[Rfam]
RNA sequence: AACCCCCCCCAUAAAAACAGUAGUACCCCAACCAGGAGCAACUUUGCCAUAUUCGGAAUUU
Numbered sequence: 001a002a003c004c005c006c007c008c009c010c011a012u013a014a015a016a017a018c019a020g021u022a023g024u025a026c027c028c029c030a031a032c033c034a035g036g037a038g039c040a041a042c043u044u045u046g047c048c049a050u051a052u053u054c055g056g057a058a059u060u061u
Stems, first nucleotide, its partner, number of pairs: 017045001019043003023039002026036002
Rfam assigns this 61-nucleotide RNA sequence from Chara braunii to the family "Plastid-psbN 5UTR RNA".
Plastid psbN is a non-coding RNA (ncRNA) recognised in plastids. It was reported as a conserved 11 stem-loop in the prime untranslated region (5UTR) of psbN genes. It has been reported that the motif is retained in a subset of mature transcripts in barley, which can suggests a possible role in transcript alternative 5 prime processing.
The base pairs follow the family's consensus structure, which was predicted with LocARNA.
It scores 51 bits against the family's covariance model.
The organism belongs to Chara, within Eukaryota.